Overview: This 111-nucleotide RNA sequence from Xylanibacter ruminicola belongs to the Rfam family "SAM-I/IV (S-adenosyl methionine) riboswitch aptamer". A reference for the family is Weinberg et al. (2008), "The aptamer core of SAM-IV riboswitches mimics the ligand-binding site of SAM-I riboswitches", RNA. The base pairs follow the family's consensus structure, which is taken from published work. It scores 54 bits against the family's covariance model.
[Rfam]
RNA sequence: AAUAAGCAUCAAGAGUGGCAUAAUGCACACCAACCGGCCUACACAGAAUCGUUGGCAGCGGUGGUAAAAGGAUGCGAGUGAAUGUUUAAUCCACUAAAGAUAAACGAUUAU
Numbered sequence: 001a002a003u004a005a006g007c008a009u010c011a012a013g014a015g016u017g018g019c020a021u022a023a024u025g026c027a028c029a030c031c032a033a034c035c036g037g038c039c040u041a042c043a044c045a046g047a048a049u050c051g052u053u054g055g056c057a058g059c060g061g062u063g064g065u066a067a068a069a070g071g072a073u074g075c076g077a078g079u080g081a082a083u084g085u086u087u088a089a090u091c092c093a094c095u096a097a098a099g100a101u102a103a104a105c106g107a108u109u110a111u
Base pairs, nucleotide, nucleotide: 006075007074008073009072010071015028018026019025020024029065030064031063034061035060036059037056038055039054042106077095078094079093080092